This 173-nucleotide sequence from Shouchella lonarensis belongs to the Rfam family "Group II catalytic intron D1-D4-3". The literature on the family includes a 2001 paper in Trends Genet by Bonen and Vogel, "The ins and outs of group II introns".

[Rfam]
Nucleotides: 173
Stems, first nucleotide, its partner, number of pairs: 001016006028173003032169001035165002041158005046150005062145006073137003077133001080130004085113004091106004
Number, partner (000 for none) and nucleotide at each position: 001016u002015u003014u004013g005012g006011g007000g008000u009000g010000a011006c012005u013004c014003a015002g016001a017000a018000u019000c020000u021000g022000a023000a024000g025000g026000a027000a028173g029172c030171c031000g032169g033000a034000c035165g036164c037000a038000a039000a040000a041158u042157c043156c044155c045154g046150a047149g048148g049147u050146g051000a052000c053000g054000a055000a056000c057000a058000g059000a060000a061000a062145c063144u064143g065142g066141a067140u068000a069000a070000a071000a072000g073137g074136c075135u076000g077133u078000u079000u080130g081129a082128g083127a084000u085113g086112g087111a088110c089000g090000a091106g092105u093104u094103u095000g096000c097000c098000a099000c100000a101000c102000a103094a104093a105092a106091c107000a108000a109000a110088g111087u112086c113085c114000g115000a116000u117000a118000c119000u120000g121000c122000c123000c124000a125000a126000g127083u128082c129081u130080u131000c132000u133077g134000c135075a136074g137073u138000a139000a140067a141066u142065c143064c144063a145062g146050c147049a148048c149047c150046u151000a152000u153000a154045u155044g156043g157042g158041a159000g160000g161000a162000a163000a164036g165035u166000g167000g168000u169032u170000a171030g172029g173028c